[Rfam]
RNA sequence: GCAGCGGUCAGGCUUUGUCGCUGGCAUCCAUUAGGGUGCGAGAGGAAAGUCCGGGCAGCAUAGGGGCUCCACUUCCGAAACUAGAAGCUAUUGGUGACAGUAGGCUAAGGUAGAAGAAAAUAACCGCCUAUCUUUCAUGGUAGGUAAGGGUGAGAAGGUGGUGUAAGAGACCACCAGCCAAUGGGUGAUCAUUUGGGCUGUAUCUGCUGGAGGCUGCAAGUUCAUGUAUACCAUCGUUGGAGGGUUCCCGCCCGAUACACCCUUUGAGGAGUAACGAUGGAGGGUAGAACGCUUGAGUUGCAGGGCGACUUGCAAACUAGAUAGAUGACAGAGCACCUGCGUUCUUGCAACGUAGGAAACAGAACCCGGCUUACGUGACCGCUGCCUUG
Numbered sequence: 001g002c003a004g005c006g007g008u009c010a011g012g013c014u015u016u017g018u019c020g021c022u023g024g025c026a027u028c029c030a031u032u033a034g035g036g037u038g039c040g041a042g043a044g045g046a047a048a049g050u051c052c053g054g055g056c057a058g059c060a061u062a063g064g065g066g067c068u069c070c071a072c073u074u075c076c077g078a079a080a081c082u083a084g085a086a087g088c089u090a091u092u093g094g095u096g097a098c099a100g101u102a103g104g105c106u107a108a109g110g111u112a113g114a115a116g117a118a119a120a121u122a123a124c125c126g127c128c129u130a131u132c133u134u135u136c137a138u139g140g141u142a143g144g145u146a147a148g149g150g151u152g153a154g155a156a157g158g159u160g161g162u163g164u165a166a167g168a169g170a171c172c173a174c175c176a177g178c179c180a181a182u183g184g185g186u187g188a189u190c191a192u193u194u195g196g197g198c199u200g201u202a203u204c205u206g207c208u209g210g211a212g213g214c215u216g217c218a219a220g221u222u223c224a225u226g227u228a229u230a231c232c233a234u235c236g237u238u239g240g241a242g243g244g245u246u247c248c249c250g251c252c253c254g255a256u257a258c259a260c261c262c263u264u265u266g267a268g269g270a271g272u273a274a275c276g277a278u279g280g281a282g283g284g285u286a287g288a289a290c291g292c293u294u295g296a297g298u299u300g301c302a303g304g305g306c307g308a309c310u311u312g313c314a315a316a317c318u319a320g321a322u323a324g325a326u327g328a329c330a331g332a333g334c335a336c337c338u339g340c341g342u343u344c345u346u347g348c349a350a351c352g353u354a355g356g357a358a359a360c361a362g363a364a365c366c367c368g369g370c371u372u373a374c375g376u377g378a379c380c381g382c383u384g385c386c387u388u389g
Base pairs, nucleotide, nucleotide: 001385002384003383004382005381006380007379008378009377010376011374013333014332015331016330017329018328019327021042022041024039025038026037027036028035029034047372048371049370051369052368053367054366055365056216057215058214059213067212068211069210070209071208072087073086074085075084088103090101091100092099093098104207105206109204110203111202112201124149125148126145127144128143129142130141131140132139157175158174159173160172161171162170177198178196179195180194181192182191183190184189220290221289222288223287231280232279233278234277235276236275237274238273239272298315299314300313301312302311303310304309

The record is a 389-nucleotide sequence from Prevotella sp. CAG:1092, which matches "Bacterial RNase P class A" in Rfam. Taxonomically the source falls in Prevotella (Bacteria, Bacteroidota, Bacteroidales, Prevotellaceae). It scores 196 bits against the family's covariance model.